[Rfam]
RNA sequence: GUUAACCUAAAUUUACAGUAAUUAACGUGAAUACUCAUGAAAUAAGAAUGCACAGCCCUUAUGAUGAGUCCAUAGCUUAGAUUAACCCUGAGAUAUAACAUUUCUCCUUUUUACCGAAACUGUGUAACAACAGAUUCGUAGUUCUACGCAAUGAAUACCCCAAUCAUUGCGUAUUUUUUUGCCUAAAAUUUGUCA
Numbered sequence: 001g002u003u004a005a006c007c008u009a010a011a012u013u014u015a016c017a018g019u020a021a022u023u024a025a026c027g028u029g030a031a032u033a034c035u036c037a038u039g040a041a042a043u044a045a046g047a048a049u050g051c052a053c054a055g056c057c058c059u060u061a062u063g064a065u066g067a068g069u070c071c072a073u074a075g076c077u078u079a080g081a082u083u084a085a086c087c088c089u090g091a092g093a094u095a096u097a098a099c100a101u102u103u104c105u106c107c108u109u110u111u112u113a114c115c116g117a118a119a120c121u122g123u124g125u126a127a128c129a130a131c132a133g134a135u136u137c138g139u140a141g142u143u144c145u146a147c148g149c150a151a152u153g154a155a156u157a158c159c160c161c162a163a164u165c166a167u168u169g170c171g172u173a174u175u176u177u178u179u180u181g182c183c184u185a186a187a188a189u190u191u192g193u194c195a
Stems, first nucleotide, its partner, number of pairs: 014052001016050002019047001022044001026039003065195003068189002073185003077181001078097002081094001083091001115138004120133004146172009

Overview:
A member of the RNA family "Aar sRNA" from Acinetobacter johnsonii, 195 nucleotides long. The family's RNA type in Rfam is small RNA. The literature on the family includes a 2010 paper in Arch Microbiol by Schilling et al., "The small RNA Aar in Acinetobacter baylyi: a putative regulator of amino acid metabolism". The family's consensus secondary structure was predicted with mfold. Gene Ontology term of the family: regulation of cellular amino acid metabolic process.